RNA sequence: UUUCGCAUUGGGUUUACGCGCCAUGAUGCCAUUGCCCACAGCAUGCAACAGGUGCGUUUUACCUAACCCUGUGCCGCCAUA
Numbered sequence: 001u002u003u004c005g006c007a008u009u010g011g012g013u014u015u016a017c018g019c020g021c022c023a024u025g026a027u028g029c030c031a032u033u034g035c036c037c038a039c040a041g042c043a044u045g046c047a048a049c050a051g052g053u054g055c056g057u058u059u060u061a062c063c064u065a066a067c068c069c070u071g072u073g074c075c076g077c078c079a080u081a
Stems, first nucleotide, its partner, number of pairs: 005042002009038005016032001018030001020029002051078004056074002061072002
This 81-nucleotide sequence from Enterobacterales bacterium CwR94 belongs to the Rfam family "antisense RNA of dnaA mRNA". Lineage of the source: Bacteria > Pseudomonadati > Pseudomonadota > Gammaproteobacteria > Enterobacterales. Its family is annotated with regulation of mRNA stability in the Gene Ontology.